The family of this 240-nucleotide RNA sequence from Bacillus infantis is "SR1 sRNA". The organism belongs to Bacillus infantis, within Bacteria. It scores 71 bits against the family's covariance model. The family's consensus secondary structure is taken from published work. The family's RNA type in Rfam is small RNA.
RNA sequence: UUAGAGUAAAAUAAAACGCUUUCAAAACCAAAUUCAGCGAAAAGGGGAUUGAACAGAUGGGCACAAUUGUAUGUCAGGAUUGCAAUUCAACAAUCGAUCACUUUGAAGAUGAAAAGGUAACGGUUCUGUAUGCGAAAUGCAAUUGCAGAAAAGGCGGACAAAAAGAGAAAAGCAAUUAGAAUCAGCAUUAAAAAUGAUUUUAUAGAAGAAAGCAUGCAAAAAUUGCAUGCUUUCUUUUUU
Numbered sequence: 001u002u003a004g005a006g007u008a009a010a011a012u013a014a015a016a017c018g019c020u021u022u023c024a025a026a027a028c029c030a031a032a033u034u035c036a037g038c039g040a041a042a043a044g045g046g047g048a049u050u051g052a053a054c055a056g057a058u059g060g061g062c063a064c065a066a067u068u069g070u071a072u073g074u075c076a077g078g079a080u081u082g083c084a085a086u087u088c089a090a091c092a093a094u095c096g097a098u099c100a101c102u103u104u105g106a107a108g109a110u111g112a113a114a115a116g117g118u119a120a121c122g123g124u125u126c127u128g129u130a131u132g133c134g135a136a137a138u139g140c141a142a143u144u145g146c147a148g149a150a151a152a153g154g155c156g157g158a159c160a161a162a163a164a165g166a167g168a169a170a171a172g173c174a175a176u177u178a179g180a181a182u183c184a185g186c187a188u189u190a191a192a193a194a195u196g197a198u199u200u201u202a203u204a205g206a207a208g209a210a211a212g213c214a215u216g217c218a219a220a221a222a223u224u225g226c227a228u229g230c231u232u233u234c235u236u237u238u239u240u
Stems, first nucleotide, its partner, number of pairs: 016118002019116004025110001033107005039101001042098001058093001060091001065086001070085001144187003204238013